[Rfam]
RNA: Plastid-ccsA-ndhD-1 3UTR RNA
Organism: Vitis vinifera
RNA sequence: AAAACCAGAACCAUUUGAAUCACUGCACUACUUGAUUCAAAUGGUUCUCACAAA
Dot-bracket structure: ......((((((((((((((((..........))))))))))))))))......